[Rfam]
RNA sequence: UAAUGGCAAGAGUGAUGAAUCAAUUAGAUGUGUGAAUGGGAAUUGAAUUUCUUUUCCAUUUUGAAUUCAAACUUUUGAGGCACUAUAGUUUGUCUGACUUGCCAUUG
Numbered sequence: 001u002a003a004u005g006g007c008a009a010g011a012g013u014g015a016u017g018a019a020u021c022a023a024u025u026a027g028a029u030g031u032g033u034g035a036a037u038g039g040g041a042a043u044u045g046a047a048u049u050u051c052u053u054u055u056c057c058a059u060u061u062u063g064a065a066u067u068c069a070a071a072c073u074u075u076u077g078a079g080g081c082a083c084u085a086u087a088g089u090u091u092g093u094c095u096g097a098c099u100u101g102c103c104a105u106u107g
Stems, first nucleotide, its partner, number of pairs: 001107010
The family of this 107-nucleotide RNA from Durio zibethinus is "Small nucleolar RNA Z266".
A search with the family's covariance model found it, with a score of 79 bits.
Lineage of the source: Eukaryota > Streptophyta > Magnoliopsida > Malvales > Durio.
The literature on the family includes a 2003 paper in Nucleic Acids Res by Chen et al., "The high diversity of snoRNAs in plants: identification and comparative study of 120 snoRNA genes from Oryza sativa".